This 105-nucleotide sequence from Glycine soja belongs to the Rfam family "MIR1520 microRNA precursor family". Rfam links the family to the GO terms miRNA-mediated post-transcriptional gene silencing and RISC complex. Pairs were carried over by alignment from the consensus structure, which was predicted with RNAalifold.

[Rfam]
Nucleotides: 105
Stems, first nucleotide, its partner, number of pairs: 020094004025089002029085003033081003038076003
Number, partner (000 for none) and nucleotide at each position: 001000a002000u003000a004000a005000u006000g007000a008000a009000a010000a011000a012000c013000g014000u015000u016000g017000a018000c019000u020094g021093u022092c023091a024000a025089a026088u027000g028000u029085c030084a031083u032000a033081a034080u035079c036000c037000u038076a039075u040074u041000g042000g043000a044000u045000g046000u047000u048000a049000a050000a051000a052000u053000g054000g055000u056000a057000u058000a059000c060000g061000a062000a063000a064000a065000u066000u067000c068000a069000c070000g071000u072000c073000c074040a075039a076038u077000a078000u079035g080034a081033u082000u083031a084030u085029g086000a087000c088026a089025u090000a091023u092022g093021a094020c095000a096000g097000u098000u099000a100000a101000c102000g103000u104000u105000a